Fluoride riboswitch aptamer (crcB RNA motif): a 78-nucleotide RNA from Gracilinema caldarium. Lineage of the source: Bacteria > Treponematales > Breznakiellaceae > Gracilinema > Gracilinema caldarium. The family's consensus secondary structure is taken from published work. A reference for the family is Baker et al. (2012), "Widespread genetic switches and toxicity resistance proteins for fluoride", Science.

[Rfam]
RNA sequence: AAGGUAUGAGGUGAUGGAGUUCACCAACGAGCGCAUUCGCUCUGAACCGCCUUCCUGGCCGAUAACUCCUAUGAAGGA
Numbered sequence: 001a002a003g004g005u006a007u008g009a010g011g012u013g014a015u016g017g018a019g020u021u022c023a024c025c026a027a028c029g030a031g032c033g034c035a036u037u038c039g040c041u042c043u044g045a046a047c048c049g050c051c052u053u054c055c056u057g058g059c060c061g062a063u064a065a066c067u068c069c070u071a072u073g074a075a076g077g078a
Stems, first nucleotide, its partner, number of pairs: 010025004016069006049059003
Its family is annotated with response to fluoride and positive regulation of gene expression in the Gene Ontology.